[Rfam]
A member of the RNA family "RAGATH-5 RNA", 53 nucleotides long.
Its family is annotated with catalytic activity in the Gene Ontology.
The family's consensus secondary structure is taken from published work.
The literature on the family includes a 2015 paper in Nat Chem Biol by Weinberg et al., "New classes of self-cleaving ribozymes revealed by comparative genomics analysis".
RNA sequence: CCGGAAACUUUAGCAGGGCUGCACCGGGCAAAGCAACCCCGCCCCACUACCCC
Numbered sequence: 001c002c003g004g005a006a007a008c009u010u011u012a013g014c015a016g017g018g019c020u021g022c023a024c025c026g027g028g029c030a031a032a033g034c035a036a037c038c039c040c041g042c043c044c045c046a047c048u049a050c051c052c053c
Stems, first nucleotide, its partner, number of pairs: 001027004013042001016039003020035003